[Rfam]
RNA sequence: CUGGCACGCACACCCAGAGGUCACUGUUUCCACAUAUAAUGCUCUCUCCGUGUGUGCAGAAAUAAAAUCUCAGAACCUUGUCGCCUUUCACCAGCUACAUGUGCUAAUGGAAGUGAAACCAAGGCUCUACACCU
Numbered sequence: 001c002u003g004g005c006a007c008g009c010a011c012a013c014c015c016a017g018a019g020g021u022c023a024c025u026g027u028u029u030c031c032a033c034a035u036a037u038a039a040u041g042c043u044c045u046c047u048c049c050g051u052g053u054g055u056g057c058a059g060a061a062a063u064a065a066a067a068u069c070u071c072a073g074a075a076c077c078u079u080g081u082c083g084c085c086u087u088u089c090a091c092c093a094g095c096u097a098c099a100u101g102u103g104c105u106a107a108u109g110g111a112a113g114u115g116a117a118a119c120c121a122a123g124g125c126u127c128u129a130c131a132c133c134u
Base pairs, nucleotide, nucleotide: 002059004057005056006055007054008053009052019044020043022041023040025038026037027036073127074126076124077123078122079121085113086112087111088110089109090108093105094104095103
RNA: Small nucleolar RNA SNORA68
Organism: Esox lucius